[Rfam]
RNA sequence: GUUUGACACGGUCCGACGGUGGCAGGUCUUGCCCCGACGUUUGGCCGUGGAGCCAUGAC
Numbered sequence: 001g002u003u004u005g006a007c008a009c010g011g012u013c014c015g016a017c018g019g020u021g022g023c024a025g026g027u028c029u030u031g032c033c034c035c036g037a038c039g040u041u042u043g044g045c046c047g048u049g050g051a052g053c054c055a056u057g058a059c
Stems, first nucleotide, its partner, number of pairs: 007049007015042002018035002021033005
RNA: Selenocysteine insertion sequence 3
Organism: Pseudomonas sp. C27(2019)